[Rfam]
RNA sequence: CUGAAUUUCACUGCAGCUGCUGGACACUGCACAAGAUUAGCCAUUCGAGAGACUCUUGUGCGUGUGACAGCGGCUAUUGUGGAAAUUCUAUGUCAUCUG
Numbered sequence: 001c002u003g004a005a006u007u008u009c010a011c012u013g014c015a016g017c018u019g020c021u022g023g024a025c026a027c028u029g030c031a032c033a034a035g036a037u038u039a040g041c042c043a044u045u046c047g048a049g050a051g052a053c054u055c056u057u058g059u060g061c062g063u064g065u066g067a068c069a070g071c072g073g074c075u076a077u078u079g080u081g082g083a084a085a086u087u088c089u090a091u092g093u094c095a096u097c098u099g
Stems, first nucleotide, its partner, number of pairs: 006084006015075008025064002028062006035055002
Description: mir-210 microRNA precursor family: a 99-nucleotide sequence from Armadillidium nasatum. Rfam 15.1 lists 790 matches to the family in 722 species. The family's consensus secondary structure was predicted with WAR. Its family is annotated with RISC complex and miRNA-mediated post-transcriptional gene silencing in the Gene Ontology.